[Rfam]
RNA sequence: ACUUUAUUGUAUAAACACUGUGCUAAAAUGGCAGAAACUAGGACCAUAUCUUGGUUUUUGUAAUAAUGCCAGCAGAGUAUACACAAGAAGAAAAGUAACUGCACUAGAUUGUGAAGACUGGGGUGGACCUGCUUCUUAAUGCCCAGUGCCCUUUGUCUUAAGAUUUGGUGUAGUAUAU
Numbered sequence: 001a002c003u004u005u006a007u008u009g010u011a012u013a014a015a016c017a018c019u020g021u022g023c024u025a026a027a028a029u030g031g032c033a034g035a036a037a038c039u040a041g042g043a044c045c046a047u048a049u050c051u052u053g054g055u056u057u058u059u060g061u062a063a064u065a066a067u068g069c070c071a072g073c074a075g076a077g078u079a080u081a082c083a084c085a086a087g088a089a090g091a092a093a094a095g096u097a098a099c100u101g102c103a104c105u106a107g108a109u110u111g112u113g114a115a116g117a118c119u120g121g122g123g124u125g126g127a128c129c130u131g132c133u134u135c136u137u138a139a140u141g142c143c144c145a146g147u148g149c150c151c152u153u154u155g156u157c158u159u160a161a162g163a164u165u166u167g168g169u170g171u172a173g174u175a176u177a178u
Stems, first nucleotide, its partner, number of pairs: 018077002021074004028067002031064001034058002037055007100172009120149001122147001124145003